[Rfam]
RNA sequence: ACUCCGUCUCCCCAGUGUUCAGACUACCUGUUCAGGUCGAUGCUAUUGUACAGUAGUCUGCACAUUGGUUAGACUGUGUG
Dot-bracket structure: ...........(((((((.(((((((.((((.((............)).))))))))))).)))))))............

A member of the RNA family "mir-199 microRNA precursor family" from Chiloscyllium punctatum, 80 nucleotides long.
This family consists of the microRNA (miRNA) precursor mir-199 which appears to be specific to humans.
The organism belongs to Chiloscyllium, within Eukaryota.
Rfam links the family to the GO terms RISC complex and miRNA-mediated post-transcriptional gene silencing.